RNA sequence: GGGGGCUUGGGGCCGGCCACUGGCGGCUGCCUCUCAGCCCGUGCCUCCCGGCCUGCCCCGCGCCCCAGAUCAACCCCCCGCGGGCUCCCCGCCGGGGCUCCUCCCGUGCAGUAACAGGUGUGAGCAUCCAUGCAGCAUUUUGGUGGUCAUGUAUGAUACUGCACACAGCA
Numbered sequence: 001g002g003g004g005g006c007u008u009g010g011g012g013c014c015g016g017c018c019a020c021u022g023g024c025g026g027c028u029g030c031c032u033c034u035c036a037g038c039c040c041g042u043g044c045c046u047c048c049c050g051g052c053c054u055g056c057c058c059c060g061c062g063c064c065c066c067a068g069a070u071c072a073a074c075c076c077c078c079c080g081c082g083g084g085c086u087c088c089c090c091g092c093c094g095g096g097g098c099u100c101c102u103c104c105c106g107u108g109c110a111g112u113a114a115c116a117g118g119u120g121u122g123a124g125c126a127u128c129c130a131u132g133c134a135g136c137a138u139u140u141u142g143g144u145g146g147u148c149a150u151g152u153a154u155g156a157u158a159c160u161g162c163a164c165a166c167a168g169c170a
Stems, first nucleotide, its partner, number of pairs: 003065004008060003015053004022045003025039005076097003080092004106164008115155002121149003125145004132139001

Annotation
Shown here is a 170-nucleotide sequence from Cairina moschata, a member of the family "Small Cajal body specific RNA 16". Pairs were carried over by alignment from the consensus structure, which was predicted with RNAfold. It is annotated as a small Cajal body RNA. Gene Ontology terms of the family: RNA processing and nucleolus. NCBI's taxonomy places the organism under Eukaryota, Opisthokonta, Sauria, Archelosauria, Cairina. Rfam's curators write: scaRNAs are a specific class of small nuclear RNAs which localise to the Cajal bodies and guide the modification of RNA polymerase II transcribed spliceosomal RNAs U1, U2, U4, U5 and U12.